[Rfam]
RNA sequence: GGGAUCCGUUCGCAGAAUUCGUCCGGCAGAGACGGGGAAACCACGUUUGGCCUGGUCCAGGCCUUGGGGUGAAGCCGCGCUACUGCAUCUGCAGGAGUUGCGGCCGGGUGACUCCCAUCCGAAUCCGACAGCUAACCCCGCAGGCAUUGGGAGAGGCUAC
Number, nucleotide and partner (000 for none) at each position: 001g000002g000003g000004a000005u000006c000007c000008g000009u000010u000011c000012g145013c144014a000015g000016a000017a000018u031019u030020c029021g000022u000023c000024c000025g000026g000027c000028a000029g020030a019031g018032a000033c140034g139035g138036g137037g136038a000039a000040a000041c000042c066043a065044c000045g000046u000047u000048u000049g000050g000051c000052c000053u000054g000055g000056u000057c000058c000059a000060g000061g000062c000063c000064u000065u043066g042067g126068g125069g124070u000071g000072a000073a000074g000075c103076c102077g101078c100079g000080c000081u000082a000083c000084u000085g000086c000087a000088u000089c000090u000091g000092c000093a000094g000095g000096a000097g000098u000099u000100g078101c077102g076103g075104c000105c000106g120107g119108g118109u117110g000111a000112c000113u000114c000115c000116c000117a109118u108119c107120c106121g000122a000123a000124u069125c068126c067127g000128a000129c000130a000131g000132c000133u000134a000135a000136c037137c036138c035139c034140g033141c000142a000143g000144g013145c012146a000147u000148u000149g000150g000151g000152a000153g000154a000155g000156g000157c000158u000159a000160c000